[Rfam]
RNA sequence: AAAAUGCUAUGAUGAAUCUUGAUAACUUCGCAUGUCCGACUUCACAGAUGCCAUGACAUUAAUGAGAAGAUGUUAUAAUUUCCUAAGCAUCAC
Numbered sequence: 001a002a003a004a005u006g007c008u009a010u011g012a013u014g015a016a017u018c019u020u021g022a023u024a025a026c027u028u029c030g031c032a033u034g035u036c037c038g039a040c041u042u043c044a045c046a047g048a049u050g051c052c053a054u055g056a057c058a059u060u061a062a063u064g065a066g067a068a069g070a071u072g073u074u075a076u077a078a079u080u081u082c083c084u085a086a087g088c089a090u091c092a093c
Stems, first nucleotide, its partner, number of pairs: 004090004047060004

The family of this 93-nucleotide sequence from Zizania palustris is "Small nucleolar RNA R64/Z200 family". Taxonomically the source falls in Zizania (Eukaryota, Liliopsida, Petrosaviidae, Poales).